Source information:
The family of this 48-nucleotide sequence from Entomomonas asaccharolytica is "Guanidine-II riboswitch aptamer (mini-ykkC)". Taxonomically the source falls in Entomomonas (Bacteria, Pseudomonadota, Gammaproteobacteria, Pseudomonadaceae). A search with the family's covariance model found it, with a score of 38 bits.

RNA sequence: UAGAAAGGACGACCUUUCUCAUUUCGCAAUAACUUCAGGACGACCUGA
Numbered sequence: 001u002a003g004a005a006a007g008g009a010c011g012a013c014c015u016u017u018c019u020c021a022u023u024u025c026g027c028a029a030u031a032a033c034u035u036c037a038g039g040a041c042g043a044c045c046u047g048a
Base pairs, nucleotide, nucleotide: 002019003018004017005016006015007014008013035048036047037046038045039044